A member of the RNA family "Fluoride riboswitch aptamer (crcB RNA motif)" from Mucilaginibacter polytrichastri, 67 nucleotides long. A reference for the family is Baker et al. (2012), "Widespread genetic switches and toxicity resistance proteins for fluoride", Science. The family has 289 seed sequences and 2,293 matches in Rfam 15.1. Gene Ontology terms of the family: response to fluoride and positive regulation of gene expression. The family's consensus secondary structure is taken from published work.
RNA sequence: GUACUGAAAGGCAAUGGUGAGCUGCCUAUUUGAACCGCCUUAAAAAGCUGAUGACGCCUACUCGAAU
Numbered sequence: 001g002u003a004c005u006g007a008a009a010g011g012c013a014a015u016g017g018u019g020a021g022c023u024g025c026c027u028a029u030u031u032g033a034a035c036c037g038c039c040u041u042a043a044a045a046a047g048c049u050g051a052u053g054a055c056g057c058c059u060a061c062u063c064g065a066a067u
Base pairs, nucleotide, nucleotide: 010026011025012024013023016058017057018056019055037048038047040045